This 81-nucleotide sequence from Enhydra lutris belongs to the Rfam family "mir-224 microRNA precursor family".
NCBI's taxonomy places the organism under Eukaryota, Metazoa, Mammalia, Boreoeutheria, Enhydra lutris.
RNA sequence: GGGCUUUCAAGUUAUUAGUGGUUCCAUUUAGUAGAUGGUUAUGCAUUAUUUCAAAAUGGUGCCCUAGUGACUCUGAAGCCC
Dot-bracket structure: (((((((..(((((((((.(((.((((((.(.(((((((.....)))))))).)))))).))))))))))))..)))))))
It scores 92 bits against the family's covariance model.